[Rfam]
RNA sequence: AUGACUGUACUCGAAAGAAUCAUUUCUACAGGUCAGUCUCCGCUUUGUUUAUUCAAAACAAGGCAAACCCACCGAUUCCGAUGAGGACGUGAAAGUUGGCAGAGCAGUGAUGGUUUUGCAGCGACUUCGAGCCUAUUUUUGGUCCAUGUCCUGUUUUCGAUGACCUGCGGUCUUUUUCUCGAACGAGACCGACUCUGCUGACGAUCCUGAGGAAC
Numbered sequence: 001a002u003g004a005c006u007g008u009a010c011u012c013g014a015a016a017g018a019a020u021c022a023u024u025u026c027u028a029c030a031g032g033u034c035a036g037u038c039u040c041c042g043c044u045u046u047g048u049u050u051a052u053u054c055a056a057a058a059c060a061a062g063g064c065a066a067a068c069c070c071a072c073c074g075a076u077u078c079c080g081a082u083g084a085g086g087a088c089g090u091g092a093a094a095g096u097u098g099g100c101a102g103a104g105c106a107g108u109g110a111u112g113g114u115u116u117u118g119c120a121g122c123g124a125c126u127u128c129g130a131g132c133c134u135a136u137u138u139u140u141g142g143u144c145c146a147u148g149u150c151c152u153g154u155u156u157u158c159g160a161u162g163a164c165c166u167g168c169g170g171u172c173u174u175u176u177u178c179u180c181g182a183a184c185g186a187g188a189c190c191g192a193c194u195c196u197g198c199u200g201a202c203g204a205u206c207c208u209g210a211g212g213a214a215c
Base pairs, nucleotide, nucleotide: 003038004037005036006035007034010031011030016027017026018025019024047064048063049062052061053060076214077213078212079211095202096201097200098199099198100197101196102195103194104193105167106166107165118154119153120152123150124149125148129145131143132142133141168191169190170189171188172187173186174185
RNA: Small nucleolar RNA U3